Enterobacteria greA leader: a 122-nucleotide sequence from Sodalis glossinidius. A search with the family's covariance model found it, with a score of 100 bits. The base pairs follow the family's consensus structure, which is taken from published work.
[Rfam]
RNA sequence: GUCACACUACGGUGCAAACAGGGAUAAGUAAACGAUGACCCACACCGAACUCUGCGGUAAAAUACGUAUCAAAAUGCAAAACUGAGGCUGGCCUGGGAAGCGAUUCCGGGGUCGCUUCCUUU
Numbered sequence: 001g002u003c004a005c006a007c008u009a010c011g012g013u014g015c016a017a018a019c020a021g022g023g024a025u026a027a028g029u030a031a032a033c034g035a036u037g038a039c040c041c042a043c044a045c046c047g048a049a050c051u052c053u054g055c056g057g058u059a060a061a062a063u064a065c066g067u068a069u070c071a072a073a074a075u076g077c078a079a080a081a082c083u084g085a086g087g088c089u090g091g092c093c094u095g096g097g098a099a100g101c102g103a104u105u106c107c108g109g110g111g112u113c114g115c116u117u118c119c120u121u122u
Stems, first nucleotide, its partner, number of pairs: 001039004010034002014029002040047001056070004087115002090112001092110006
Overview:
Its family is annotated with regulation of gene expression in the Gene Ontology.